The family of this 110-nucleotide sequence from Brachypodium distachyon is "MIR444 microRNA precursor family". The sequence is in the family's curated seed alignment. The organism belongs to Brachypodium, within Eukaryota. Pairs were carried over by alignment from the consensus structure, which was predicted with RNAalifold. The literature on the family includes a 2007 paper in Genome Biol by Yao et al., "Cloning and characterization of microRNAs from wheat (Triticum aestivum L.)". Its family is annotated with RISC complex and miRNA-mediated post-transcriptional gene silencing in the Gene Ontology.
RNA sequence: CACGCGUCCGACUAGAGGCAGCAACUCCAUAACUUGCGGAAAGCUUGUUGGAUGAUGACCAUGCCAAUGAUUUUACCGAAGUUAUGCAGUUGCUGCCUCAAGCUUGCUGC
Numbered sequence: 001c002a003c004g005c006g007u008c009c010g011a012c013u014a015g016a017g018g019c020a021g022c023a024a025c026u027c028c029a030u031a032a033c034u035u036g037c038g039g040a041a042a043g044c045u046u047g048u049u050g051g052a053u054g055a056u057g058a059c060c061a062u063g064c065c066a067a068u069g070a071u072u073u074u075a076c077c078g079a080a081g082u083u084a085u086g087c088a089g090u091u092g093c094u095g096c097c098u099c100a101a102g103c104u105u106g107c108u109g110c
Base pairs, nucleotide, nucleotide: 008106010104012102015099016098018096019095028086029085030084033081035079037078038077039076042073043072046069